[Rfam]
RNA: Small nucleolar RNA SNORA28
RNA sequence: AAGUAACACUCUGUGGCAGAUGGUCAAAACUGACAGAAUUUGAGCUUGCUAUAGCAACUAAGUCUAACCUAUUCCAGUGAUCUCUCCUCUGUGAGACAAGCCAUUCUAUAAACUUAGACAGU
Numbered sequence: 001a002a003g004u005a006a007c008a009c010u011c012u013g014u015g016g017c018a019g020a021u022g023g024u025c026a027a028a029a030c031u032g033a034c035a036g037a038a039u040u041u042g043a044g045c046u047u048g049c050u051a052u053a054g055c056a057a058c059u060a061a062g063u064c065u066a067a068c069c070u071a072u073u074c075c076a077g078u079g080a081u082c083u084c085u086c087c088u089c090u091g092u093g094a095g096a097c098a099a100g101c102c103a104u105u106c107u108a109u110a111a112a113c114u115u116a117g118a119c120a121g122u
Stems, first nucleotide, its partner, number of pairs: 009044003012037001014035002017032003021028001060115004065110002070108002077101002083096004